[Rfam]
RNA sequence: UAAAUAUUUGUACGUAUCCUUCAUAUAUCCUCGAAAAUAGGGUUCGAAAGUUUCUACCAAAUCACCGUAAAUGAUUUGACUAUGAAGGCAGAUCAUUCUUUU
Numbered sequence: 001u002a003a004a005u006a007u008u009u010g011u012a013c014g015u016a017u018c019c020u021u022c023a024u025a026u027a028u029c030c031u032c033g034a035a036a037a038u039a040g041g042g043u044u045c046g047a048a049a050g051u052u053u054c055u056a057c058c059a060a061a062u063c064a065c066c067g068u069a070a071a072u073g074a075u076u077u078g079a080c081u082a083u084g085a086a087g088g089c090a091g092a093u094c095a096u097u098c099u100u101u102u
Stems, first nucleotide, its partner, number of pairs: 018088008031047005058078007

Background: Shown here is a 102-nucleotide RNA from Bacillus sp. V3-13, a member of the family "Purine riboswitch aptamer". Pairs were carried over by alignment from the consensus structure, which is taken from published work. Rfam's curators write: Riboswitches are metabolite binding domains within certain messenger RNAs that serve as precision sensors for their corresponding targets. Allosteric rearrangement of mRNA structure is mediated by ligand binding, and this results in modulation of gene expression. A class of riboswitches that selectively recognises guanine and becomes saturated at concentrations as low as 5 nM. In Bacillus subtilis, this mRNA motif is located on at least five separate transcriptional units that together encode 17 genes that are mostly involved in purine transport and purine nucleotide biosynthesis.